[Rfam]
RgsA sRNA: a 197-nucleotide RNA from Pseudomonas oryzae.
The source organism's lineage runs through Bacteria, Pseudomonadati, Pseudomonadota, Pseudomonadaceae and Pseudomonas.
The family's consensus secondary structure was predicted with RNAalifold.
Rfam links the family to the GO terms response to hydrogen peroxide, response to oxidative stress and sRNA-mediated gene silencing.
Rfam classes the family as a small RNA.
A search with the family's covariance model found it, with a score of 125 bits.
This small RNA (sRNA) was computationally identified in the genome of the opportunistic pathogen Pseudomonas aeruginosa and its expression verified by northern blot analysis. P16 sRNA appears to be conserved across several Pseudomonas species and Azotobacter vinelandii. In these species it is consistently located downstream of a predicted TatD deoxyribonuclease gene. P16 has a predicted Rho independent terminator at the 3' end but the function of P16 is unknown. It has been shown that this sRNA is transcribed from an RpoS-dependent promoter under positive, probably indirect GacA control in two Pseudomonas species. It was renamed RgsA (for regulation by GacA and stress).RpoS mRNA expression is repressed by RgsA during the exponential phase. The Hfq RNA chaperone is required for the repression.
RNA sequence: CAGCAGACACGAAACUAUUUCAAAUCCGUUUUAAAACAGCGUGACUCGAACCUAUCAGACGCGGAUGGCUGGUCAAUACUGUUAAUCACUGAUGUGCGGCACUCUCCCCCAAGUGCCCGUCAGGCGGAGCAGCGUGGAGCGCCUGUUCCGGUUUCACUCCUAAUGGUCUUGACCCGGAUUCAUCCCCCAGAAUCCGG
Numbered sequence: 001c002a003g004c005a006g007a008c009a010c011g012a013a014a015c016u017a018u019u020u021c022a023a024a025u026c027c028g029u030u031u032u033a034a035a036a037c038a039g040c041g042u043g044a045c046u047c048g049a050a051c052c053u054a055u056c057a058g059a060c061g062c063g064g065a066u067g068g069c070u071g072g073u074c075a076a077u078a079c080u081g082u083u084a085a086u087c088a089c090u091g092a093u094g095u096g097c098g099g100c101a102c103u104c105u106c107c108c109c110c111a112a113g114u115g116c117c118c119g120u121c122a123g124g125c126g127g128a129g130c131a132g133c134g135u136g137g138a139g140c141g142c143c144u145g146u147u148c149c150g151g152u153u154u155c156a157c158u159c160c161u162a163a164u165g166g167u168c169u170u171g172a173c174c175c176g177g178a179u180u181c182a183u184c185c186c187c188c189a190g191a192a193u194c195c196g197g
Stems, first nucleotide, its partner, number of pairs: 039168001042165002089123003095119002098117001100115003125150008133141001174197004179192003
Dot-bracket structure: ......................................(..((.............................................(((...((.(.(((..........))).))).))).(((((((((.......).)))))))).............))..).....((((.(((........))).))))